[Rfam]
RNA sequence: UUAAAUCGACAGUCGCUGGCUACUUAGAUAGUUAGAGGAAAGUCCAUGCUCGCACAAUCUGUGAUGAUUGUAGUGUUUGUGCUAGAUGAAUAAAUAAGUCUAGGCAAGUUAUUGCUUGACGGCUGUUUUGUUUGCUAAGGGAAACUAUGUAAACAAACUUUAAAAGUGCCACAGAGACGAAUCUAUAUGGAAACGUAUAGGGUGGAACGGGUAAACCCCACAAGCGAGAAACCCAAAUUUGGUAGGGGAACCGGCUGGAAUGAAACGAAAGGAAGGCUGGAUAGCUUUAUGCUAUAGAUAAAUGACUGUCACCACGCAAGUGGAACAGAACAUGGCUUAUGAUU
Numbered sequence: 001u002u003a004a005a006u007c008g009a010c011a012g013u014c015g016c017u018g019g020c021u022a023c024u025u026a027g028a029u030a031g032u033u034a035g036a037g038g039a040a041a042g043u044c045c046a047u048g049c050u051c052g053c054a055c056a057a058u059c060u061g062u063g064a065u066g067a068u069u070g071u072a073g074u075g076u077u078u079g080u081g082c083u084a085g086a087u088g089a090a091u092a093a094a095u096a097a098g099u100c101u102a103g104g105c106a107a108g109u110u111a112u113u114g115c116u117u118g119a120c121g122g123c124u125g126u127u128u129u130g131u132u133u134g135c136u137a138a139g140g141g142a143a144a145c146u147a148u149g150u151a152a153a154c155a156a157a158c159u160u161u162a163a164a165a166g167u168g169c170c171a172c173a174g175a176g177a178c179g180a181a182u183c184u185a186u187a188u189g190g191a192a193a194c195g196u197a198u199a200g201g202g203u204g205g206a207a208c209g210g211g212u213a214a215a216c217c218c219c220a221c222a223a224g225c226g227a228g229a230a231a232c233c234c235a236a237a238u239u240u241g242g243u244a245g246g247g248g249a250a251c252c253g254g255c256u257g258g259a260a261u262g263a264a265a266c267g268a269a270a271g272g273a274a275g276g277c278u279g280g281a282u283a284g285c286u287u288u289a290u291g292c293u294a295u296a297g298a299u300a301a302a303u304g305a306c307u308g309u310c311a312c313c314a315c316g317c318a319a320g321u322g323g324a325a326c327a328g329a330a331c332a333u334g335g336c337u338u339a340u341g342a343u344u
Base pairs, nucleotide, nucleotide: 004344005343006342008310009309010308011307012306013305014304016035017034018033019032020031021030040338041337042336044335045334046333047332048331049228050227051226052225053224054071055070056069057068058067059066077223078222079221080220081219082103083102084101085100086099087098104120105118106117107116108115109114121218122217125159127157132152133151134150135149139146140145166216167215168212169211170210182201183200184199185198186197187196188195189194232247233246234245251280252279253278254277255276256275281295282294283293284292285291312323313322314321315320
Dot-bracket structure: ...(((.(((((((.((((((........))))))....[[[.[[[[[(((((((((((......)))))).....(((((((((((..........))))))((((((....))))).)((..(.(....((((...((....))..))))....).)......(((((...........((((((((....))))))))........)))..))))))))))))))...(((..........)))...((((((..................))))))(((((.....)))))........))))))).((((....)))).......]]]]]]]]...)))
This 344-nucleotide RNA sequence belongs to the Rfam family "Bacterial RNase P class B".
The family is grouped with related families in Rfam's "RNaseP clan".
About the family: Ribonuclease P (RNase P) is a ubiquitous endoribonuclease, found in archaea, bacteria and eukarya as well as chloroplasts and mitochondria.